Rfam assigns this 48-nucleotide RNA sequence from Hydrogenophaga crocea to the family "Guanidine-II riboswitch aptamer (mini-ykkC)". A search with the family's covariance model found it, with a score of 37 bits. Simpler in structure and has fewer highly conserved nucleotide positions than the ykkC-yxkD leader. Despite this each of its two stem-loop structures directly bind free guanidine. The family's consensus secondary structure is taken from published work.
[Rfam]
RNA sequence: GCGGCGGGACGACCCGUCCGUUGUUCUCGAACCGGCAGGACGGCCUGC
Numbered sequence: 001g002c003g004g005c006g007g008g009a010c011g012a013c014c015c016g017u018c019c020g021u022u023g024u025u026c027u028c029g030a031a032c033c034g035g036c037a038g039g040a041c042g043g044c045c046u047g048c
Base pairs, nucleotide, nucleotide: 001021002020003019004018005016006015007014008013035048036047037046038045039044